The family of this 82-nucleotide RNA sequence from Gopherus agassizii is "NoRC associated RNA, pRNA". Its family is annotated with chromatin remodeling in the Gene Ontology.

RNA sequence: CGAUGGUGGCGUUUUUGGGGACAGGUGUCCGUGUCGCGCGUCGCCUGGGCCGGCGGCGUGGUCGGUGACGCGACCUCCCGGC
Numbered sequence: 001c002g003a004u005g006g007u008g009g010c011g012u013u014u015u016u017g018g019g020g021a022c023a024g025g026u027g028u029c030c031g032u033g034u035c036g037c038g039c040g041u042c043g044c045c046u047g048g049g050c051c052g053g054c055g056g057c058g059u060g061g062u063c064g065g066u067g068a069c070g071c072g073a074c075c076u077c078c079c080g081g082c
Base pairs, nucleotide, nucleotide: 011082012081018079019078020077021076027069028068029067030065033062034061035060036059037058038057039056
Taxonomically the source falls in Gopherus (Eukaryota, Eumetazoa, Sarcopterygii, Amniota).
The literature on the family includes a 2008 paper in EMBO Rep by Mayer et al., "The structure of NoRC-associated RNA is crucial for targeting the chromatin remodelling complex NoRC to the nucleolus".
A search with the family's covariance model found it, with a score of 74 bits.